A member of the RNA family "Ascomycota telomerase RNA" from Apiosordaria backusii, 206 nucleotides of a longer RNA. Taxonomically the source falls in Apiosordaria (Eukaryota, saccharomyceta, Sordariomycetes, Sordariomycetidae). The match comes from Rfam's covariance-model search (858 bits). The base pairs follow the family's consensus structure. Its family is annotated with telomerase activity, telomerase catalytic core complex and telomere maintenance via telomerase in the Gene Ontology. For this family Rfam cites "The common ancestral core of vertebrate and fungal telomerase RNAs" (Qi et al., Nucleic Acids Res, 2013). The family has 4 seed sequences and 475 matches in Rfam 15.1.
RNA sequence: UCCUCCACAGUUCUCCGACUCUGGCUUUCCGCAAGGAAUGCUCCUUCGGGGCCGCCUCACUGGGUUCUGGACUGUCUGCAGUACGUCGCAGCUUCGAUCCUGUAUCAGGAACCUCCAAGCCUGCCGCGUGUGGAUUACUGCGGCCAUCGUUUUCACGCCAGUCCCGCGGGGUGAAUCAGUUUCGGAACUUAACCCUAAGUUUUCAU
Numbered sequence: 001u002c003c004u005c006c007a008c009a010g011u012u013c014u015c016c017g018a019c020u021c022u023g024g025c026u027u028u029c030c031g032c033a034a035g036g037a038a039u040g041c042u043c044c045u046u047c048g049g050g051g052c053c054g055c056c057u058c059a060c061u062g063g064g065u066u067c068u069g070g071a072c073u074g075u076c077u078g079c080a081g082u083a084c085g086u087c088g089c090a091g092c093u094u095c096g097a098u099c100c101u102g103u104a105u106c107a108g109g110a111a112c113c114u115c116c117a118a119g120c121c122u123g124c125c126g127c128g129u130g131u132g133g134a135u136u137a138c139u140g141c142g143g144c145c146a147u148c149g150u151u152u153u154c155a156c157g158c159c160a161g162u163c164c165c166g167c168g169g170g171g172u173g174a175a176u177c178a179g180u181u182u183c184g185g186a187a188c189u190u191a192a193c194c195c196u197a198a199g200u201u202u203u204c205a206u
Stems, first nucleotide, its partner, number of pairs: 009189003015185004